Rfam assigns this 70-nucleotide sequence from Cylicocyclus nassatus to the family "mir-236 microRNA precursor family".
Its Rfam clan is "mir-8 microRNA precursor clan".
Pairs were carried over by alignment from the consensus structure, which was predicted with RNAalifold.
The source organism's lineage runs through Eukaryota, Eumetazoa, Protostomia, Rhabditida and Cylicocyclus.

[Rfam]
RNA sequence: GACUCGCGUCUUACCUGAACAAUAUUAGAAGCCUUGAUCUAUCUAAUACUGUCAGGUAAUGAUGCUAGUC
Numbered sequence: 001g002a003c004u005c006g007c008g009u010c011u012u013a014c015c016u017g018a019a020c021a022a023u024a025u026u027a028g029a030a031g032c033c034u035u036g037a038u039c040u041a042u043c044u045a046a047u048a049c050u051g052u053c054a055g056g057u058a059a060u061g062a063u064g065c066u067a068g069u070c
Base pairs, nucleotide, nucleotide: 001070002069003068004067006065007064008063009062010061011059012058013057014056015055016054017053020051021050023048024047025046026045027044028043029042